[Rfam]
RNA: SAM/SAH riboswitch aptamer
RNA sequence: GAUUUGUCACAACGGCUUCCUGACGUGGCAACGUAUUUAAACUGGAGCA
Numbered sequence: 001g002a003u004u005u006g007u008c009a010c011a012a013c014g015g016c017u018u019c020c021u022g023a024c025g026u027g028g029c030a031a032c033g034u035a036u037u038u039a040a041a042c043u044g045g046a047g048c049a
Base pairs, nucleotide, nucleotide: 004031005030006029007028008027009026010025013022014021015048016047017046019045020044